This 70-nucleotide sequence from Regulus satrapa belongs to the Rfam family "Selenocysteine insertion sequence 1".

RNA sequence: CACAGAGCAAUGACAGCAGAACCCCAAACCCCACAGGCGUGGGGGGGGUUCUGCCUGACCCCCUCCUGUG
Numbered sequence: 001c002a003c004a005g006a007g008c009a010a011u012g013a014c015a016g017c018a019g020a021a022c023c024c025c026a027a028a029c030c031c032c033a034c035a036g037g038c039g040u041g042g043g044g045g046g047g048g049u050u051c052u053g054c055c056u057g058a059c060c061c062c063c064u065c066c067u068g069u070g
Stems, first nucleotide, its partner, number of pairs: 001070005016054009030044003

Rfam links the family to the GO term selenocysteine incorporation. It is annotated as a cis-regulatory element. The match comes from Rfam's covariance-model search (36 bits). From the family's description: The incorporation of selenocysteine into a protein sequence is directed by an in-frame UGA codon (usually a stop codon) within the coding region of the mRNA. Selenoprotein mRNAs contain a conserved secondary structure in the 3' UTR that is required for the distinction of UGA stop from UGA selenocysteine. The selenocysteine insertion sequence (SECIS) is around 60 nt in length and adopts a hairpin structure which is sufficiently well-defined and conserved to act as a computational screen for selenoprotein genes.